Shown here is a 142-nucleotide RNA sequence from Gadus morhua, a member of the family "U4 spliceosomal RNA". The match comes from Rfam's covariance-model search (116 bits). Its Rfam clan is "U4 clan". The source organism's lineage runs through Eukaryota, Metazoa, Neopterygii, Clupeocephala and Gadus.

RNA sequence: AUCUUUGCGCAGCGGCAGUAUCGUAGCCUAUGAGGUCAAACUGAGGCGCGAUUAUUGCUAGUUGAAAACUUUACCCAAUACCCCGCCAAAGACGACUUGCAAUAUAGUCGGCGAUGGCAAUUUUUGACAGUUUCUAAGGAGA
Numbered sequence: 001a002u003c004u005u006u007g008c009g010c011a012g013c014g015g016c017a018g019u020a021u022c023g024u025a026g027c028c029u030a031u032g033a034g035g036u037c038a039a040a041c042u043g044a045g046g047c048g049c050g051a052u053u054a055u056u057g058c059u060a061g062u063u064g065a066a067a068a069c070u071u072u073a074c075c076c077a078a079u080a081c082c083c084c085g086c087c088a089a090a091g092a093c094g095a096c097u098u099g100c101a102a103u104a105u106a107g108u109c110g111g112c113g114a115u116g117g118c119a120a121u122u123u124u125u126g127a128c129a130g131u132u133u134c135u136a137a138g139g140a141g142a
Base pairs, nucleotide, nucleotide: 020052021051022050023049024048026047027046028045034042035041036040085118086117087116091112093110094109095108096107097106131142132141133140134139